[Rfam]
RNA sequence: UAUUCAUCCCUGUUAGAGAUAAAAAUAGCCGUAUAAACGGCACGUUCAUUUACGUGAACAUAGCUCUGACAGAAUCCCUGCUGUACCCCUACAUAUGCAUCAAAGAAAGUGUAAUGACAG
Numbered sequence: 001u002a003u004u005c006a007u008c009c010c011u012g013u014u015a016g017a018g019a020u021a022a023a024a025a026u027a028g029c030c031g032u033a034u035a036a037a038c039g040g041c042a043c044g045u046u047c048a049u050u051u052a053c054g055u056g057a058a059c060a061u062a063g064c065u066c067u068g069a070c071a072g073a074a075u076c077c078c079u080g081c082u083g084u085a086c087c088c089c090u091a092c093a094u095a096u097g098c099a100u101c102a103a104a105g106a107a108a109g110u111g112u113a114a115u116g117a118c119a120g
Stems, first nucleotide, its partner, number of pairs: 010072009028041005044059006081120004090113005098105001
Rfam assigns this 120-nucleotide RNA sequence from Yersinia pestis to the family "Yersinia sRNA 100". The family's RNA type in Rfam is small RNA. Rfam's curators put it in the seed alignment. Pairs were carried over by alignment from the consensus structure, which was predicted with RNAfold. On this family, see Nuss et al., PLoS Genet 2015: "Transcriptomic profiling of Yersinia pseudotuberculosis reveals reprogramming of the Crp regulon by temperature and uncovers Crp as a master regulator of small RNAs". From the family's description: 5' located ORF: qor, 3' located ORF: pspG. Decreased expression in the crp mutant (in the stationary phase), suggesting CRP regulon is a regulator of the sRNA. CRP binding in a cAMP dependent manner was confirmed.